[Rfam]
RNA: Small nucleolar RNA SNORA14
RNA sequence: AUGCAUUCUUAAACCCUCUUGGCAGCUUCGGUCACGUGCUUCCAAGAUAUGAGUGAAUGCUAGAGAAAUUGCGGGGGAGUCCAAGGGCUGCGCUUGUCUUGUGGCUUCAGUCUUAUUUCAGACCUGCGACAUCU
Numbered sequence: 001a002u003g004c005a006u007u008c009u010u011a012a013a014c015c016c017u018c019u020u021g022g023c024a025g026c027u028u029c030g031g032u033c034a035c036g037u038g039c040u041u042c043c044a045a046g047a048u049a050u051g052a053g054u055g056a057a058u059g060c061u062a063g064a065g066a067a068a069u070u071g072c073g074g075g076g077g078a079g080u081c082c083a084a085g086g087g088c089u090g091c092g093c094u095u096g097u098c099u100u101g102u103g104g105c106u107u108c109a110g111u112c113u114u115a116u117u118u119c120a121g122a123c124c125u126g127c128g129a130c131a132u133c134u
Stems, first nucleotide, its partner, number of pairs: 003060004008053004017047006024040003064134003069129007084114007092105002